The family of this 52-nucleotide RNA is "Glutamine riboswitch aptamer (glnA leader)". The base pairs follow the family's consensus structure, which is taken from published work. Rfam links the family to the GO term glutamine binding.
RNA sequence: AACGUUCAUCCUAAAAAGGACGGAAGUAGGCAAUAUGCCGAAGGAACGCACC
Numbered sequence: 001a002a003c004g005u006u007c008a009u010c011c012u013a014a015a016a017a018g019g020a021c022g023g024a025a026g027u028a029g030g031c032a033a034u035a036u037g038c039c040g041a042a043g044g045a046a047c048g049c050a051c052c
Stems, first nucleotide, its partner, number of pairs: 003048005009020004023049001029039003